Notes: Shown here is a 101-nucleotide RNA sequence from Natronobacillus azotifigens, a member of the family "c-di-GMP-I riboswitch aptamer". Lineage of the source: Bacteria > Bacillati > Bacilli > Caryophanales > Natronobacillus. Rfam describes the family as follows. GEMM was predicted in a large-scale screen for bacterial structured RNA regulatory elements. Rfam 15.1 lists 5,092 matches to the family in 1,772 species.
RNA sequence: UAGUGAUAAAGGCAAACUAUUUGAAAAGAUAGGACGCAAAGUCAUGGGUCUAAGGUAUAAAGGUAACCAUUUAUCCCGGUGCAGUCCGUAAGACUCCCACU
Dot-bracket structure: ...........((...((((((....))))))...))..((((.(.((.(.................................).)..).)))))......